The record is an 81-nucleotide sequence from Betta splendens, which matches "mir-147 microRNA precursor family" in Rfam. It scores 58 bits against the family's covariance model.

RNA sequence: CAUCAGUCUAGCAGAAUUAUUUCUGCACAAACUAGGACGCUUUGACACUCUGUGUGCGUAAAUGCUUCUGCUCCUCUGGUG
Numbered sequence: 001c002a003u004c005a006g007u008c009u010a011g012c013a014g015a016a017u018u019a020u021u022u023c024u025g026c027a028c029a030a031a032c033u034a035g036g037a038c039g040c041u042u043u044g045a046c047a048c049u050c051u052g053u054g055u056g057c058g059u060a061a062a063u064g065c066u067u068c069u070g071c072u073c074c075u076c077u078g079g080u081g
Base pairs, nucleotide, nucleotide: 001081002080004078005077006076010072011071012070013069014068015067016066018064019063020062021061022060024058025057026056027055028054029053032052